The family of this 97-nucleotide sequence from Ziziphus jujuba is "Small nucleolar RNA Z107/R87". Rfam 15.1 lists 783 matches to the family in 221 species. The base pairs follow the family's consensus structure, which was predicted with RNAfold. A search with the family's covariance model found it, with a score of 54 bits. Rfam links the family to the GO terms nucleolus and RNA processing. For this family Rfam cites "Identification of 66 box C/D snoRNAs in Arabidopsis thaliana: extensive gene duplications generated multiple isoforms predicting new ribosomal RNA 2'-O-methylation sites" (Barneche et al., J Mol Biol, 2001).
RNA sequence: GAUUGCAGUGAUGACUCUAUGAAAUUCAAGCUUAGCAGACCGGAAUGCAGGGUUAUAGUAUCUCUGCCUGUCGAUCGACACGCUAACUUCAGCGAUU
Numbered sequence: 001g002a003u004u005g006c007a008g009u010g011a012u013g014a015c016u017c018u019a020u021g022a023a024a025u026u027c028a029a030g031c032u033u034a035g036c037a038g039a040c041c042g043g044a045a046u047g048c049a050g051g052g053u054u055a056u057a058g059u060a061u062c063u064c065u066g067c068c069u070g071u072c073g074a075u076c077g078a079c080a081c082g083c084u085a086a087c088u089u090c091a092g093c094g095a096u097u
Stems, first nucleotide, its partner, number of pairs: 001097006